The record is a 131-nucleotide RNA from Vitis rotundifolia, which matches "MIR845_2 microRNA precursor family" in Rfam. Gene Ontology terms of the family: miRNA-mediated post-transcriptional gene silencing and RISC complex.
RNA sequence: UGAAAGCAUAAUAUUUAUCUUUAGGGCCAUGGGAUAAACAAAAACCCUGCCAAACCACAAUUAGCAUACCCUUGAAAGGUUCUAACAUACUUGCUAACCUAUGGCUUUGAUACCAGUUGUAGGAAAACCCU
Numbered sequence: 001u002g003a004a005a006g007c008a009u010a011a012u013a014u015u016u017a018u019c020u021u022u023a024g025g026g027c028c029a030u031g032g033g034a035u036a037a038a039c040a041a042a043a044a045c046c047c048u049g050c051c052a053a054a055c056c057a058c059a060a061u062u063a064g065c066a067u068a069c070c071c072u073u074g075a076a077a078g079g080u081u082c083u084a085a086c087a088u089a090c091u092u093g094c095u096a097a098c099c100u101a102u103g104g105c106u107u108u109g110a111u112a113c114c115a116g117u118u119g120u121a122g123g124a125a126a127a128c129c130c131u
Stems, first nucleotide, its partner, number of pairs: 009121002012119002015116002022109012048087002053081002056078001061074001063072002